[Rfam]
RNA sequence: UCCUUACAAUACAACCAUACUUAAUGAUUGGUAAUUCCUUACUAGUUAAUGAGUUUCGGACUUAAGUAUGAUGUUGUGUUUGCAUAUAGUUCGGGUAACCGAACUUGAGUAACAAAUAUGUUACUCAUUUACUUCCUGUAUAUUAUUAAACCGAUUUGGUUAAACGCUGCUCUCAUUGAGUGGCGUUUUUUU
Numbered sequence: 001u002c003c004u005u006a007c008a009a010u011a012c013a014a015c016c017a018u019a020c021u022u023a024a025u026g027a028u029u030g031g032u033a034a035u036u037c038c039u040u041a042c043u044a045g046u047u048a049a050u051g052a053g054u055u056u057c058g059g060a061c062u063u064a065a066g067u068a069u070g071a072u073g074u075u076g077u078g079u080u081u082g083c084a085u086a087u088a089g090u091u092c093g094g095g096u097a098a099c100c101g102a103a104c105u106u107g108a109g110u111a112a113c114a115a116a117u118a119u120g121u122u123a124c125u126c127a128u129u130u131a132c133u134u135c136c137u138g139u140a141u142a143u144u145a146u147u148a149a150a151c152c153g154a155u156u157u158g159g160u161u162a163a164a165c166g167c168u169g170c171u172c173u174c175a176u177u178g179a180g181u182g183g184c185g186u187u188u189u190u191u192u
Stems, first nucleotide, its partner, number of pairs: 009062001012059001015058001023054001025048010088105007108125006142160003165185008
GcvB RNA: a 192-nucleotide sequence from Haemophilus influenzae. Rfam classes the family as a non-coding RNA gene. Pairs were carried over by alignment from the consensus structure, which is taken from published work. Rfam's curators write: The gcvB gene encodes a small untranslated RNA involved in expression of the dipeptide and oligopeptide transport systems in Escherichia coli. Included several unknown homologues in alignment (Bateman A pers obs). It base-pairs with SorC. This interaction triggers the degradation of GcvB by RNase E, alleviating the GcvB-mediated mRNA repression of other amino acid-related transport and metabolic genes. On this family, see Miyakoshi et al., EMBO J 2015: "Cross talk between ABC transporter mRNAs via a target mRNA-derived sponge of the GcvB small RNA". NCBI's taxonomy places the organism under Bacteria, Pseudomonadati, Pseudomonadota, Pasteurellaceae, Haemophilus influenzae.